This 78-nucleotide RNA sequence from Pasteurella multocida belongs to the Rfam family "Aggregatibacter sRNA 20". A search with the family's covariance model found it, with a score of 76 bits. The family's RNA type in Rfam is small RNA. Validated by RT-PCR and Northern blot.

[Rfam]
RNA sequence: AAAAUAAGUGCUAUAAAAAAUAGCCGACAUAUUUUGCUUUCCGAGUAGUGCCUUGUUUCAAGGCACUUUUUUUUGUUU
Numbered sequence: 001a002a003a004a005u006a007a008g009u010g011c012u013a014u015a016a017a018a019a020a021u022a023g024c025c026g027a028c029a030u031a032u033u034u035u036g037c038u039u040u041c042c043g044a045g046u047a048g049u050g051c052c053u054u055g056u057u058u059c060a061a062g063g064c065a066c067u068u069u070u071u072u073u074u075g076u077u078u
Stems, first nucleotide, its partner, number of pairs: 001073004006068003022038003026034001027032001049065006